The family of this 206-nucleotide RNA sequence from Paenibacillus sp. FSL H7-0737 is "Lysine riboswitch aptamer".
RNA sequence: AGAUGAGGUAGAGGUCGCGGAUAUAAAGAGUACGCGUGUGGAGACGUUAGAGCCGUCUAUGAAUCACGCCGAAAGGAAUAUCCGCCGAAGCUUGCGCUGUAGCUCUUACAGCGGUGCAGGCUGGGGCCGUUGCCGAAAGGCACGGAACUGUCACAUUGUACAGCCUGCGUAAGUAGCAGACUGCAGUGUGUUGCGCUAUCUUCACA
Numbered sequence: 001a002g003a004u005g006a007g008g009u010a011g012a013g014g015u016c017g018c019g020g021a022u023a024u025a026a027a028g029a030g031u032a033c034g035c036g037u038g039u040g041g042a043g044a045c046g047u048u049a050g051a052g053c054c055g056u057c058u059a060u061g062a063a064u065c066a067c068g069c070c071g072a073a074a075g076g077a078a079u080a081u082c083c084g085c086c087g088a089a090g091c092u093u094g095c096g097c098u099g100u101a102g103c104u105c106u107u108a109c110a111g112c113g114g115u116g117c118a119g120g121c122u123g124g125g126g127c128c129g130u131u132g133c134c135g136a137a138a139g140g141c142a143c144g145g146a147a148c149u150g151u152c153a154c155a156u157u158g159u160a161c162a163g164c165c166u167g168c169g170u171a172a173g174u175a176g177c178a179g180a181c182u183g184c185a186g187u188g189u190g191u192u193g194c195g196c197u198a199u200c201u202u203c204a205c206a
Stems, first nucleotide, its partner, number of pairs: 006201006017085008034069005089122012123149002127145003131142004152190009
Lineage of the source: Bacteria > Bacillati > Bacillota > Bacilli > Paenibacillus.